[Rfam]
RNA sequence: CUUGAUCGAGCCGAGCCGCAGCGGGCGGUCGGCGGGGCGCUCCCGGCCGUAGGUGGCCAGGAGCGCCUGCGCCUC
Numbered sequence: 001c002u003u004g005a006u007c008g009a010g011c012c013g014a015g016c017c018g019c020a021g022c023g024g025g026c027g028g029u030c031g032g033c034g035g036g037g038c039g040c041u042c043c044c045g046g047c048c049g050u051a052g053g054u055g056g057c058c059a060g061g062a063g064c065g066c067c068u069g070c071g072c073c074u075c
Base pairs, nucleotide, nucleotide: 016024017023032070033069038065039064043060045058047056048055049054

The family of this 75-nucleotide sequence from Dactylosporangium vinaceum is "ASpks TB sRNA".
The base pairs follow the family's consensus structure, which is taken from published work.
By type it is an antisense RNA.
Taxonomically the source falls in Dactylosporangium (Bacteria, Bacillati, Actinomycetota, Actinomycetes).